[Rfam]
RNA sequence: GUCGUCGCGAGGCGGGGUCUGGAGGAAGCCCAAUCCGAGGCUGCGGGGCGAUGAACAAAAACCGGAUAUGAGGCGUGAUGCAUCCGGGACGAGCGGGCACGUGACCGCGAAGCCCUCCAUCCAUCUGCGGUUGUUGGGAUGCACUUUGUAAAUCCGGCGGCAGCGCAGAAAGUGACGUGU
Numbered sequence: 001g002u003c004g005u006c007g008c009g010a011g012g013c014g015g016g017g018u019c020u021g022g023a024g025g026a027a028g029c030c031c032a033a034u035c036c037g038a039g040g041c042u043g044c045g046g047g048g049c050g051a052u053g054a055a056c057a058a059a060a061a062c063c064g065g066a067u068a069u070g071a072g073g074c075g076u077g078a079u080g081c082a083u084c085c086g087g088g089a090c091g092a093g094c095g096g097g098c099a100c101g102u103g104a105c106c107g108c109g110a111a112g113c114c115c116u117c118c119a120u121c122c123a124u125c126u127g128c129g130g131u132u133g134u135u136g137g138g139a140u141g142c143a144c145u146u147u148g149u150a151a152a153u154c155c156g157g158c159g160g161c162a163g164c165g166c167a168g169a170a171a172g173u174g175a176c177g178u179g180u
Stems, first nucleotide, its partner, number of pairs: 002015005031179002036174001040164005046158001062157006073149003077145001079143006087115002090112001093108004
Rfam assigns this 180-nucleotide RNA sequence from Acidithiobacillus ferrooxidans to the family "Group II catalytic intron D1-D4-3". From the family's description: Group II introns are found in rRNA, tRNA and mRNA of organelles in fungi, plants and protists, and also in mRNA in bacteria. Rfam's curators put it in the seed alignment.